[Rfam]
RNA: Purine riboswitch aptamer
Organism: Ureibacillus massiliensis
RNA sequence: AUAGUAACGAUAGGCUGCCUUCAUAUAAAUCUGAUAAUCUGGUUCGGAUGUUUCUACUAAGUUACCUUAAUAACUUAUCUAUGAGGGCGGGUACUGUUGUG
Numbered sequence: 001a002u003a004g005u006a007a008c009g010a011u012a013g014g015c016u017g018c019c020u021u022c023a024u025a026u027a028a029a030u031c032u033g034a035u036a037a038u039c040u041g042g043u044u045c046g047g048a049u050g051u052u053u054c055u056a057c058u059a060a061g062u063u064a065c066c067u068u069a070a071u072a073a074c075u076u077a078u079c080u081a082u083g084a085g086g087g088c089g090g091g092u093a094c095u096g097u098u099g100u101g
Stems, first nucleotide, its partner, number of pairs: 018087008029049006058077007